[Rfam]
RNA sequence: AUGGCACCAAUUCCAGAAGUAUAUCAGCAAAAAUAAGCAAUACCAUGGUUUAAACAGGGGUGCCAAUAGCAAGUGGAUCUUAUCGCCUUUGGGGGGCUACAAUUGUACCCCUCAAAGUGAAUUUGCAGGUUCUGUGUGC
Number, nucleotide and partner (000 for none) at each position: 001a000002u065003g064004g063005c062006a061007c060008c059009a000010a000011u000012u000013c000014c000015a000016g000017a050018a049019g000020u047021a046022u045023a000024u000025c000026a000027g000028c000029a000030a000031a000032a000033a000034u000035a000036a000037g000038c000039a000040a000041u000042a000043c000044c000045a022046u021047g020048g000049u018050u017051u000052a000053a000054a000055c000056a000057g000058g000059g008060g007061u006062g005063c004064c003065a002066a000067u000068a000069g000070c000071a000072a000073g000074u000075g132076g131077a130078u129079c128080u127081u000082a000083u000084c000085g000086c000087c117088u116089u115090u114091g113092g112093g111094g110095g109096g108097c000098u000099a000100c000101a000102a000103u000104u000105g000106u000107a000108c096109c095110c094111c093112u092113c091114a090115a089116a088117g087118u000119g000120a000121a000122u000123u000124u000125g000126c000127a080128g079129g078130u077131u076132c075133u000134g000135u000136g000137u000138g000139c000

Small nucleolar RNA SNORA68: a 139-nucleotide RNA from Capra hircus. It scores 76 bits against the family's covariance model. The family has 26 seed sequences and 1,079 matches in Rfam 15.1. The family's consensus secondary structure was predicted with PFOLD. On this family, see Ganot et al., Genes Dev 1997: "The family of box ACA small nucleolar RNAs is defined by an evolutionarily conserved secondary structure and ubiquitous sequence elements essential for RNA accumulation". Rfam describes the family as follows. U68 is a member of the H/ACA class of small nucleolar RNAs (snoRNAs) which act as guides in the the modification of uridines to pseudouridines.